[Rfam]
RNA sequence: AAGACCGUACUUACACAGGAUCAUUUCUAUAGUACCUUCUUUUCUACUUGACUUUCCUCGUAGACAAUCUCAAUAACUUUGAUGAUCGUAUUGGACUUCAUUCAUUGACUCGGGAUGUCGGUGGUUGCAGUGCUGAGUUCUCUUUUGAACUUGGUCUCCCCCAUUGAUGAACGUCCGCUGUCGCUAUUCCAAGGCAGCGUGAGUGAGUGGAGUGAUAUGAGAAGU
Number, nucleotide and partner (000 for none) at each position: 001a041002a040003g039004a038005c000006c000007g035008u034009a033010c032011u031012u000013a000014c000015a000016c000017a028018g027019g026020a025021u000022c000023a000024u000025u020026u019027c018028u017029a000030u000031a011032g010033u009034a008035c007036c000037u000038u004039c003040u002041u001042u000043u000044c000045u000046a000047c000048u000049u066050g065051a000052c000053u000054u063055u062056c000057c000058u000059c000060g000061u000062a055063g054064a000065c050066a049067a000068u000069c000070u000071c000072a000073a000074u000075a000076a225077c224078u223079u222080u221081g000082a000083u000084g000085a000086u000087c000088g000089u000090a000091u000092u000093g000094g000095a213096c212097u211098u210099c209100a208101u207102u206103c205104a204105u203106u202107g000108a000109c000110u000111c173112g172113g000114g000115a000116u000117g000118u000119c000120g162121g161122u000123g159124g000125u000126u000127g155128c154129a000130g000131u000132g000133c000134u000135g000136a151137g150138u149139u148140c147141u000142c000143u000144u000145u000146u000147g140148a139149a138150c137151u136152u000153g000154g128155u127156c000157u000158c000159c123160c000161c121162c120163a000164u000165u000166g000167a000168u000169g000170a000171a000172c112173g111174u000175c201176c199177g198178c197179u196180g195181u194182c193183g000184c000185u000186a000187u000188u000189c000190c000191a000192a000193g182194g181195c180196a179197g178198c177199g176200u000201g175202a106203g105204u104205g103206a102207g101208u100209g099210g098211a097212g096213u095214g000215a000216u000217a000218u000219g000220a000221g080222a079223a078224g077225u076

A member of the RNA family "Small nucleolar RNA U3" from Phytophthora infestans, 225 nucleotides long. The family is grouped with related families in Rfam's "U3 clan". The literature on the family includes a 1997 paper in Nucleic Acids Res by Zwieb, "The uRNA database". Small nucleolar RNAs (snoRNAs) are involved in the processing and modification of rRNA in the nucleolus. There are two main classes of snoRNAs: the box C/D class, and the box H/ACA class. U3 snoRNA is a member of the box C/D class. Indeed, the box C/D element is a subset of the six short sequence elements found in all U3 snoRNAs, namely boxes A, A', B, C, C', and D. The U3 snoRNA secondary structure is characterised by a small 5' domain (with boxes A and A'), and a larger 3' domain (with boxes B, C, C', and D), the two domains being linked by a single-stranded hinge. Boxes B and C form the B/C motif, which appears to be exclusive to U3 snoRNAs, and boxes C' and D form the C'/D motif. The latter is functionally similar to the C/D motifs found in other snoRNAs. The 5' domain and the hinge region act as a pre-rRNA-binding domain. The 3' domain has conserved protein-binding sites. Both the box B/C and box C'/D motifs are sufficient for nuclear retention of U3 snoRNA. The box C'/D motif is also necessary for nucleolar localisation, stability and hyper-methylation of U3 snoRNA. Both box B/C and C'/D motifs are involved in specific protein interactions and are necessary for the rRNA processing functions of U3 snoRNA. The family's consensus secondary structure is taken from published work.